Rfam assigns this 144-nucleotide RNA from Phoenix dactylifera to the family "small nucleolar RNA snoR134". By type it is an H/ACA-box small nucleolar RNA. The literature on the family includes a 2009 paper in Nucleic Acids Res by Chen and Wu, "Mining small RNA sequencing data: a new approach to identify small nucleolar RNAs in Arabidopsis".
RNA sequence: UUGCACGAAGCACCCCGGGCUUUGCUGAAGAACUCCGUGACGACGGAAGCCCCAAUGCUGGUGCCAGAUAGAUUCGCCGUUCCUUGUUGCAGUUCUGUUCACGAAUUCCUGCGACCGAUCUGUGUCAAUGUAACGGCUAAACUU
Dot-bracket structure: ..((((.(.((.....(((((((.(................)..)).)))))....))).))))...........((((((...((.(((((....(((.............)))....))))).))....)))))).......